This 61-nucleotide sequence from Nostoc sp. PCC 7120 = FACHB-418 belongs to the Rfam family "Nitrogen stress-induced RNA 1". The match comes from Rfam's covariance-model search (44 bits). Rfam 15.1 lists 962 matches to the family in 163 species.
Nucleotides: 061
Stems, first nucleotide, its partner, number of pairs: 002013003027053001029051008
Number, partner (000 for none) and nucleotide at each position: 001000u002013g003012g004011u005000a006000g007000a008000u009000g010000c011004a012003c013002c014000u015000u016000g017000a018000u019000a020000a021000c022000u023000a024000a025000c026000u027053u028000c029051c030050c031049u032048g033047u034046u035045u036044g037000g038000u039000u040000a041000a042000a043000g044036u045035a046034a047033g048032u049031a050030g051029g052000a053027g054000c055000u056000u057000u058000u059000u060000u061000u

The pairing is the family consensus, mapped onto this sequence. For this family Rfam cites "Heterocyst-specific transcription of NsiR1, a non-coding RNA encoded in a tandem array of direct repeats in cyanobacteria" (Ionescu et al., J Mol Biol, 2010).